[Rfam]
RNA: mir-23 microRNA precursor family
RNA sequence: UGACCAGGGGAAUUCCUGGCAGGGUGAUUUUUUUAAGCCUAAAGGACUGAAUCACAUUGCCAGGGAUUUCCAAUGGCUG
Number, nucleotide and partner (000 for none) at each position: 001u079002g078003a000004c076005c075006a074007g000008g000009g000010g071011a000012a067013u066014u065015c064016c063017u062018g061019g060020c059021a058022g057023g000024g055025u054026g053027a052028u051029u050030u049031u000032u000033u000034u000035a000036a000037g000038c000039c000040u000041a000042a000043a000044g000045g000046a000047c000048u000049g030050a029051a028052u027053c026054a025055c024056a000057u022058u021059g020060c019061c018062a017063g016064g015065g014066a013067u012068u000069u000070c000071c010072a000073a000074u006075g005076g004077c000078u002079g001